[Rfam]
RNA: tRNA
RNA sequence: GCCGCGUUAGCUCAGUUGGCAGAGCGUCGAUCUUGUAAAUCGAAUGUCGGGAGUUCGACUCUCCCACGCGGCU
Numbered sequence: 001g002c003c004g005c006g007u008u009a010g011c012u013c014a015g016u017u018g019g020c021a022g023a024g025c026g027u028c029g030a031u032c033u034u035g036u037a038a039a040u041c042g043a044a045u046g047u048c049g050g051g052a053g054u055u056c057g058a059c060u061c062u063c064c065c066a067c068g069c070g071g072c073u
Base pairs, nucleotide, nucleotide: 001072002071003070004069005068006067007066010025011024012023013022027043028042029041030040031039049065050064051063052062053061